A member of the RNA family "Small nucleolar RNA SNORA31" from Cavia porcellus, 126 nucleotides long.
RNA sequence: CUGCAUCCACUGACAGACCUUGAAAAAUUUGUUGUUCUUUUGGUUUGCACUAGGAUGCUAAAGGAAAAAUCCCUGUGCUUUCUGUCUGUCUUUAUGGCAUCCCAGAUUGAACUGGGGAGUACACCU
Numbered sequence: 001c002u003g004c005a006u007c008c009a010c011u012g013a014c015a016g017a018c019c020u021u022g023a024a025a026a027a028u029u030u031g032u033u034g035u036u037c038u039u040u041u042g043g044u045u046u047g048c049a050c051u052a053g054g055a056u057g058c059u060a061a062a063g064g065a066a067a068a069a070u071c072c073c074u075g076u077g078c079u080u081u082c083u084g085u086c087u088g089u090c091u092u093u094a095u096g097g098c099a100u101c102c103c104a105g106a107u108u109g110a111a112c113u114g115g116g117g118a119g120u121a122c123a124c125c126u
Stems, first nucleotide, its partner, number of pairs: 003058006011049002014047006022037003026033002070118006078109001081106004087099004
Lineage of the source: Eukaryota > Metazoa > Theria > Boreoeutheria > Cavia. Rfam classes the family as an H/ACA-box small nucleolar RNA. ACA31 (SNORA31) belongs to the H/ACA class of snoRNAs which are thought to guide the sites of modification of uridines to pseudouridines. Rfam links the family to the GO terms nucleolus and RNA processing. A search with the family's covariance model found it, with a score of 120 bits.